[Rfam]
This 590-nucleotide part of an RNA from haloarchaeon 2ANA_DGR belongs to the Rfam family "Archaeal small subunit ribosomal RNA". Rfam's curators put it in the seed alignment. Its family is annotated with structural constituent of ribosome and ribosome in the Gene Ontology.
RNA sequence: UGGCGGGGGAGCACUACAACCGGAGGAGCCUGCGGUUUAAUUGGACUCAACGCCGGACAUCUCACCAGCAUCGACUGUGGUAAUGACGGUCAGGUUGAUGACCUCGCCACGAGCCACAGAGAGGAGGUGCAUGGCCGCCGUCAGCUCGUACCGUGAGGCGUCCUGUUAAGUCAGGCAACGAGCGAGACCCGCAUCCGUACUUGCCAGCAGCACUCAUCGUGGCUGGGGACAGUACGGAGACCGCCGUGGCUAACACGGAGGAAGGAACGGGCAACGGUAGGUCAGUAUGCCCCGAAUGUGCUGGGCAACACGCGGGCUACAAUGGUCAGGACAAUGGGUUCCAACUCCGAAAGGAGACGGUAAUCUCACAAACCUGAUCGUAGUUCGGAUUGUGGGCUGCAACUCGCCCACAUGAAGCUGGAUUCGGUAGUAAUCGCGUGUCAGCAGCGCGCGGUGAAUACGUCCCUGCUCCUUGCACACACCGCCCGUCAAAGCACCCGAGUGAGGUCCGGAUGAGGCUCCCGAGACGGAAUCGAAUCUGGGCUUCGCAAGGGGGCUUAACUCGUAACCAGGUAGCCUUAUCUCCUCCG
Numbered sequence: 001u002g003g004c005g006g007g008g009g010a011g012c013a014c015u016a017c018a019a020c021c022g023g024a025g026g027a028g029c030c031u032g033c034g035g036u037u038u039a040a041u042u043g044g045a046c047u048c049a050a051c052g053c054c055g056g057a058c059a060u061c062u063c064a065c066c067a068g069c070a071u072c073g074a075c076u077g078u079g080g081u082a083a084u085g086a087c088g089g090u091c092a093g094g095u096u097g098a099u100g101a102c103c104u105c106g107c108c109a110c111g112a113g114c115c116a117c118a119g120a121g122a123g124g125a126g127g128u129g130c131a132u133g134g135c136c137g138c139c140g141u142c143a144g145c146u147c148g149u150a151c152c153g154u155g156a157g158g159c160g161u162c163c164u165g166u167u168a169a170g171u172c173a174g175g176c177a178a179c180g181a182g183c184g185a186g187a188c189c190c191g192c193a194u195c196c197g198u199a200c201u202u203g204c205c206a207g208c209a210g211c212a213c214u215c216a217u218c219g220u221g222g223c224u225g226g227g228g229a230c231a232g233u234a235c236g237g238a239g240a241c242c243g244c245c246g247u248g249g250c251u252a253a254c255a256c257g258g259a260g261g262a263a264g265g266a267a268c269g270g271g272c273a274a275c276g277g278u279a280g281g282u283c284a285g286u287a288u289g290c291c292c293c294g295a296a297u298g299u300g301c302u303g304g305g306c307a308a309c310a311c312g313c314g315g316g317c318u319a320c321a322a323u324g325g326u327c328a329g330g331a332c333a334a335u336g337g338g339u340u341c342c343a344a345c346u347c348c349g350a351a352a353g354g355a356g357a358c359g360g361u362a363a364u365c366u367c368a369c370a371a372a373c374c375u376g377a378u379c380g381u382a383g384u385u386c387g388g389a390u391u392g393u394g395g396g397c398u399g400c401a402a403c404u405c406g407c408c409c410a411c412a413u414g415a416a417g418c419u420g421g422a423u424u425c426g427g428u429a430g431u432a433a434u435c436g437c438g439u440g441u442c443a444g445c446a447g448c449g450c451g452c453g454g455u456g457a458a459u460a461c462g463u464c465c466c467u468g469c470u471c472c473u474u475g476c477a478c479a480c481a482c483c484g485c486c487c488g489u490c491a492a493a494g495c496a497c498c499c500g501a502g503u504g505a506g507g508u509c510c511g512g513a514u515g516a517g518g519c520u521c522c523c524g525a526g527a528c529g530g531a532a533u534c535g536a537a538u539c540u541g542g543g544c545u546u547c548g549c550a551a552g553g554g555g556g557c558u559u560a561a562c563u564c565g566u567a568a569c570c571a572g573g574u575a576g577c578c579u580u581a582u583c584u585c586c587u588c589c590g
Stems, first nucleotide, its partner, number of pairs: 001479002003476003007473007016463002020427005025320001027318008035309002041056004065304007075119004080114002088108003092104003123293002126291004132287002134282003137278004144183006151158002162175004189270003194238007204227002208225004214219001241261002244258005324379007336367003341360002345356004386417001391412007433455008482572001484569001487565002492559004497554003502549013517534002520531003